[Rfam]
RNA sequence: CUAUUAAGUGAUGGUAUAACAGACGGAGUGUCACGUCAUUACACCCAAUCAUUGACAUGUCAGUGCCACGUCAUUGAGGGUGAUGACAUGAUAAUGAGAUGUCUAUAAUAAAACGUAAUUACGUGACACUCUGUCUAUUAGGUUAUUACUUAACGGUC
Dot-bracket structure: ((.((((((((((((.(((.((((((((((((((((.(((((.....((.((.(((((...........(((((........)))))...........))))).)).)).....))))).)))))))))))))))).))).)))))))))))).))..

This 158-nucleotide RNA sequence from Glycine max belongs to the Rfam family "MIR4371 microRNA precursor family". The base pairs follow the family's consensus structure, which was predicted with RNAalifold. The organism belongs to Glycine subgen. Soja, within Eukaryota. The family is grouped with related families in Rfam's "MIR4387 microRNA precursor clan".